[Rfam]
RNA sequence: CACACAUGGGUGCGGCAGCAAUCCUGCCAUCCGGUGUUGUUUUUUGGCAGUCGCGCUGCGCUAACGCAACCGCUCCUGCUACAGCAGAAAACAGCUCUCACCCAUGGAGGUUUAACCGGUAAAAGGAGAUUGGC
Numbered sequence: 001c002a003c004a005c006a007u008g009g010g011u012g013c014g015g016c017a018g019c020a021a022u023c024c025u026g027c028c029a030u031c032c033g034g035u036g037u038u039g040u041u042u043u044u045u046g047g048c049a050g051u052c053g054c055g056c057u058g059c060g061c062u063a064a065c066g067c068a069a070c071c072g073c074u075c076c077u078g079c080u081a082c083a084g085c086a087g088a089a090a091a092c093a094g095c096u097c098u099c100a101c102c103c104a105u106g107g108a109g110g111u112u113u114a115a116c117c118g119g120u121a122a123a124a125g126g127a128g129a130u131u132g133g134c
Base pairs, nucleotide, nucleotide: 001109003107005106006105007104008103009102010101014028015027016026017025018024036095037094038093039092040091041090042089043088044087045086046085
Overview: A member of the RNA family "rpsB sRNA", 134 nucleotides long. The sequence is in the family's curated seed alignment. For this family Rfam cites "Identification of candidate structured RNAs in the marine organism 'Candidatus Pelagibacter ubique'" (Meyer et al., BMC Genomics, 2009).